FMN riboswitch aptamer (RFN element): a 205-nucleotide sequence from Paenibacillus curdlanolyticus.
It scores 96 bits against the family's covariance model.
Taxonomically the source falls in Paenibacillus curdlanolyticus (Bacteria, Bacillati, Bacillota, Paenibacillaceae).

[Rfam]
RNA sequence: UCUUUCCUUCGGGGUACGGUGAAAUUCCGAACCGGCGGUGAUCAUCGGCGACAGCUUUGCUACCGUUCAUGCGGUGCAUGUCUCCGGCGUCAGUCCGUGACCCGAAGCUUCUGAAUUACUUUCGCGGCGAACGCAUAGAAGAGGCUUCGGUGGACCUGGUGUAAAUCCGGGACCGACAGUACAGUCUGGAUGGGAGAAGGGAACG
Numbered sequence: 001u002c003u004u005u006c007c008u009u010c011g012g013g014g015u016a017c018g019g020u021g022a023a024a025u026u027c028c029g030a031a032c033c034g035g036c037g038g039u040g041a042u043c044a045u046c047g048g049c050g051a052c053a054g055c056u057u058u059g060c061u062a063c064c065g066u067u068c069a070u071g072c073g074g075u076g077c078a079u080g081u082c083u084c085c086g087g088c089g090u091c092a093g094u095c096c097g098u099g100a101c102c103c104g105a106a107g108c109u110u111c112u113g114a115a116u117u118a119c120u121u122u123c124g125c126g127g128c129g130a131a132c133g134c135a136u137a138g139a140a141g142a143g144g145c146u147u148c149g150g151u152g153g154a155c156c157u158g159g160u161g162u163a164a165a166u167c168c169g170g171g172a173c174c175g176a177c178a179g180u181a182c183a184g185u186c187u188g189g190a191u192g193g194g195a196g197a198a199g200g201g202a203a204c205g
Stems, first nucleotide, its partner, number of pairs: 003203008017029003031185002033175002035098004102150011155171005177188003